[Rfam]
A member of the RNA family "5' ureB small RNA" from Corchorus olitorius, 287 nucleotides long.
It scores 132 bits against the family's covariance model.
Rfam links the family to the GO term negative regulation of gene expression.
On this family, see Wen et al., J Bacteriol 2013: "Helicobacter pylori 5'ureB-sRNA, a cis-encoded antisense small RNA, negatively regulates ureAB expression by transcription termination".
Pairs were carried over by alignment from the consensus structure, which was predicted with mfold.
The source organism's lineage runs through Eukaryota, Euphyllophyta, malvids, Grewioideae and Corchorus.
RNA sequence: CCUCUUCGAUCUGCUGCGGGCAGAUGAAGUGGAUGUGGGAGUCGAUCCCGCCGGCGGUGAGGAUCAUGCCUUCACCGGCGAUGACCUCGGUGGCGGCGCCGAUGGGCACGCUGACACCCGGCUGGAUGUCCGGGUUGCCGGCCUUGCCGAUGGCAUGGAUGCGGCCGUGCUUGAGGCCGACGUCGGCCUUGACGAUGACCCAGUGGUCGACGAUCAGCGCAUUGGUGAUGACGGUAUCGACCACCUCGGCGGCGGGCAGCUGGCUCUGGCCCAUGCCGUCGCGGAUG
Numbered sequence: 001c002c003u004c005u006u007c008g009a010u011c012u013g014c015u016g017c018g019g020g021c022a023g024a025u026g027a028a029g030u031g032g033a034u035g036u037g038g039g040a041g042u043c044g045a046u047c048c049c050g051c052c053g054g055c056g057g058u059g060a061g062g063a064u065c066a067u068g069c070c071u072u073c074a075c076c077g078g079c080g081a082u083g084a085c086c087u088c089g090g091u092g093g094c095g096g097c098g099c100c101g102a103u104g105g106g107c108a109c110g111c112u113g114a115c116a117c118c119c120g121g122c123u124g125g126a127u128g129u130c131c132g133g134g135u136u137g138c139c140g141g142c143c144u145u146g147c148c149g150a151u152g153g154c155a156u157g158g159a160u161g162c163g164g165c166c167g168u169g170c171u172u173g174a175g176g177c178c179g180a181c182g183u184c185g186g187c188c189u190u191g192a193c194g195a196u197g198a199c200c201c202a203g204u205g206g207u208c209g210a211c212g213a214u215c216a217g218c219g220c221a222u223u224g225g226u227g228a229u230g231a232c233g234g235u236a237u238c239g240a241c242c243a244c245c246u247c248g249g250c251g252g253c254g255g256g257c258a259g260c261u262g263g264c265u266c267u268g269g270c271c272c273a274u275g276c277c278g279u280c281g282c283g284g285a286u287g
Base pairs, nucleotide, nucleotide: 001287003285005283007281008280009279012158015155016154017153018076019075022072023071030053031052032051034050035049037048038047039046057069058068059067077148078147081144083142085140090138091137092136093135094134095130096129097128099125100124102123103120104119106117164270165269166268167267170263171262173260176257177255178254186220187219189217190216191215200209223252225250230247231246234245